[Rfam]
RNA: glmS glucosamine-6-phosphate activated ribozyme aptamer
RNA sequence: UAGCAAAGCUAAGCGCCAUGCACCUUUUACCGGGAACGUGAACAGCAGAACAGCUGCUGCCGGUGAGAAGGUUAACGAGGAGGAGAGAUAAUCGAAACAUUCGGCGGAUACUCUCCCAUGCGGUCCGGGCGUGUGAUAUACCGUUAAAUAUGCGGGUAACUGCAAAACAGAAGCGGUAUAACCGGACAG
Number, nucleotide and partner (000 for none) at each position: 001u000002a000003g000004c000005a000006a000007a000008g000009c000010u000011a000012a000013g000014c000015g000016c000017c000018a000019u000020g000021c000022a072023c071024c070025u069026u068027u067028u066029a000030c000031c000032g000033g000034g000035a000036a000037c000038g000039u000040g000041a000042a000043c000044a000045g000046c000047a000048g000049a000050a000051c000052a000053g000054c000055u000056g000057c000058u000059g000060c000061c000062g000063g000064u000065g000066a028067g027068a026069a025070g024071g023072u022073u000074a000075a000076c000077g000078a000079g000080g000081a000082g116083g115084a114085g113086a112087g000088a000089u000090a000091a000092u104093c103094g102095a101096a000097a000098c000099a000100u000101u095102c094103g093104g092105c000106g000107g000108a000109u000110a000111c000112u086113c085114u084115c083116c082117c133118a132119u131120g130121c129122g000123g000124u000125c000126c000127g000128g000129g121130c120131g119132u118133g117134u000135g000136a000137u180138a179139u178140a177141c176142c175143g174144u000145u000146a000147a000148a000149u000150a000151u164152g163153c162154g161155g160156g000157u000158a000159a000160c155161u154162g153163c152164a151165a000166a000167a000168c000169a000170g000171a000172a000173g000174c143175g142176g141177u140178a139179u138180a137181a000182c000183c000184g000185g000186a000187c000188a000189g000